RNA sequence: GAGUCACCGUCUUUGGCGAGGCUAAGUGCCGCAAGACACGGAGCCGAAGCGAAAGCGAGUCCGAACAGGGCGAUUACAGUCAGAGGCGGUGGACGCGAAACCAAGUGAUCUACCCUUGGGCAGGUUGAAGGACAGGUAACACUGUCUGGAGGACCGAACCGGUAAGCGUUGAAAAGCUUUCGGAUGACCUGAGGGUAGGAGUGAAAGGCCAAUCAAACUUGGAGAUAGCUCGUA
Numbered sequence: 001g002a003g004u005c006a007c008c009g010u011c012u013u014u015g016g017c018g019a020g021g022c023u024a025a026g027u028g029c030c031g032c033a034a035g036a037c038a039c040g041g042a043g044c045c046g047a048a049g050c051g052a053a054a055g056c057g058a059g060u061c062c063g064a065a066c067a068g069g070g071c072g073a074u075u076a077c078a079g080u081c082a083g084a085g086g087c088g089g090u091g092g093a094c095g096c097g098a099a100a101c102c103a104a105g106u107g108a109u110c111u112a113c114c115c116u117u118g119g120g121c122a123g124g125u126u127g128a129a130g131g132a133c134a135g136g137u138a139a140c141a142c143u144g145u146c147u148g149g150a151g152g153a154c155c156g157a158a159c160c161g162g163u164a165a166g167c168g169u170u171g172a173a174a175a176g177c178u179u180u181c182g183g184a185u186g187a188c189c190u191g192a193g194g195g196u197a198g199g200a201g202u203g204a205a206a207g208g209c210c211a212a213u214c215a216a217a218c219u220u221g222g223a224g225a226u227a228g229c230u231c232g233u234a
Base pairs, nucleotide, nucleotide: 005091006090007089008088009087010086011085012084013083014082015081016080017079020045021044022043023042026039027038028037049056050055059071060070061069062068094232095231097229101222102221103220104219105218106217110198111197112196113195114194115193116192117191118190119189120188121186123155124154125153126152130147131146132145133144134143135142159183160182161181164179165178166177167176201209202208